[Rfam]
RNA sequence: ACAUUGCAUCAAGAGUUGGGCCUAAUGCCCAUGCCAACCUGUGGCCCAUACAAGGUGGAAAGACGAUGCGGCUUAUCAAAGCAAUCAGUGGGAACAAC
Dot-bracket structure: .....(((((....(.(((((.....)))))).((..((((((...[.))).))).))......))))).((((....)))).........]......

Rfam assigns this 98-nucleotide RNA sequence from Paracandidimonas soli to the family "SAM-I/IV (S-adenosyl methionine) riboswitch aptamer". A reference for the family is Trausch et al. (2014), "Structural basis for diversity in the SAM clan of riboswitches", PNAS. A search with the family's covariance model found it, with a score of 64 bits. Gene Ontology terms of the family: S-adenosylmethionine metabolic process and regulation of gene expression. Lineage of the source: Bacteria > Pseudomonadota > Betaproteobacteria > Burkholderiales > Paracandidimonas. The family's consensus secondary structure is taken from published work.